Overview:
Shown here is a 106-nucleotide sequence, a member of the family "PhotoRC-II RNA". Rfam's curators put it in the seed alignment. Rfam classes the family as a cis-regulatory element.
Nucleotides: 106
Base pairs, nucleotide, nucleotide: 013051014050015049016048017047040065041064042063043062044061071093072092073091074090075089076088077087
Number, partner (000 for none) and nucleotide at each position: 001000u002000c003000a004000c005000c006000a007000c008000u009000c010000u011000u012000c013051u014050u015049g016048g017047a018000g019000a020000c021000c022000g023000g024000g025000c026000c027000u028000a029000a030000u031000a032000c033000g034000c035000c036000u037000a038000c039000c040065g041064a042063g043062a044061c045000u046000a047017u048016c049015c050014a051013a052000g053000u054000a055000a056000a057000a058000u059000a060000c061044g062043u063042c064041u065040c066000u067000c068000a069000u070000a071093c072092c073091a074090a075089c076088c077087c078000u079000g080000g081000a082000g083000g084000g085000u086000a087077g088076g089075g090074u091073u092072g093071g094000a095000a096000u097000a098000c099000u100000a101000u102000a103000c104000u105000c106000u